About this RNA: Bacteroidete tryptophan peptide leader RNA: a 123-nucleotide sequence from Neotamlana nanhaiensis. Gene Ontology terms of the family: S-adenosylmethionine metabolic process and regulation of gene expression. The family's consensus secondary structure is taken from published work. Rfam classes the family as a cis-regulatory leader.
RNA sequence: GAUGCAUCAAAAGUAACAAAAUGAAUAAUUUAUUAAAUAAUAUUUGGUGGUGGUGUUUACGUAACUAACGUUCGUGAAGCAAUUACUUUGUAUAUUUAAUUAAAAUAUAAAUCAAGGCUUGUC
Numbered sequence: 001g002a003u004g005c006a007u008c009a010a011a012a013g014u015a016a017c018a019a020a021a022u023g024a025a026u027a028a029u030u031u032a033u034u035a036a037a038u039a040a041u042a043u044u045u046g047g048u049g050g051u052g053g054u055g056u057u058u059a060c061g062u063a064a065c066u067a068a069c070g071u072u073c074g075u076g077a078a079g080c081a082a083u084u085a086c087u088u089u090g091u092a093u094a095u096u097u098a099a100u101u102a103a104a105a106u107a108u109a110a111a112u113c114a115a116g117g118c119u120u121g122u123c
Base pairs, nucleotide, nucleotide: 036101037100038099040095041094042093043092045090046089047088049087050086051085052084062078063072064071065070